[Rfam]
RNA sequence: AGAAGUAGACGCGGGAGCCCGGAGCACCGGGCUGAGAGGGAGGCUGGGGCGCCUCCGACCGUCCGAACCUGAUCCGGGUCAUUCCGGCGAAGGGAGUUGCAGCAUCAUGACG
Numbered sequence: 001a002g003a004a005g006u007a008g009a010c011g012c013g014g015g016a017g018c019c020c021g022g023a024g025c026a027c028c029g030g031g032c033u034g035a036g037a038g039g040g041a042g043g044c045u046g047g048g049g050c051g052c053c054u055c056c057g058a059c060c061g062u063c064c065g066a067a068c069c070u071g072a073u074c075c076g077g078g079u080c081a082u083u084c085c086g087g088c089g090a091a092g093g094g095a096g097u098u099g100c101a102g103c104a105u106c107a108u109g110a111c112g
Stems, first nucleotide, its partner, number of pairs: 008098003011062004017032005039056005068093003074087004
Shown here is a 112-nucleotide sequence from Streptacidiphilus pinicola, a member of the family "TPP riboswitch aptamer (THI element)". Vitamin B(1) in its active form thiamin pyrophosphate (TPP) is an essential coenzyme that is synthesised by coupling of pyrimidine and thiazole moieties in bacteria. A reference for the family is Thore et al. (2006), "Structure of the eukaryotic thiamine pyrophosphate riboswitch with its regulatory ligand", Science. The organism belongs to Streptacidiphilus, within Bacteria.